[Rfam]
RNA sequence: UCCACCUUGCGCGACUGGCGAUGUCAGUGGGUACUACCACGAGGAAGCGCAAGUUCUCUGGCGUGAAGUUCAGACGCCUGCCGCUCGCCUGGGCAGCGAAU
Numbered sequence: 001u002c003c004a005c006c007u008u009g010c011g012c013g014a015c016u017g018g019c020g021a022u023g024u025c026a027g028u029g030g031g032u033a034c035u036a037c038c039a040c041g042a043g044g045a046a047g048c049g050c051a052a053g054u055u056c057u058c059u060g061g062c063g064u065g066a067a068g069u070u071c072a073g074a075c076g077c078c079u080g081c082c083g084c085u086c087g088c089c090u091g092g093g094c095a096g097c098g099a100a101u
Base pairs, nucleotide, nucleotide: 004055006053007052008051009050010049011048012047015044016043017089018088019087020086021085027040028039029038030037078096079095080094081093082092
Rfam assigns this 101-nucleotide RNA sequence from Cupriavidus pinatubonensis to the family "ZMP/ZTP riboswitch aptamer (pfl RNA motif)". The source organism's lineage runs through Bacteria, Pseudomonadota, Burkholderiales, Burkholderiaceae and Cupriavidus pinatubonensis.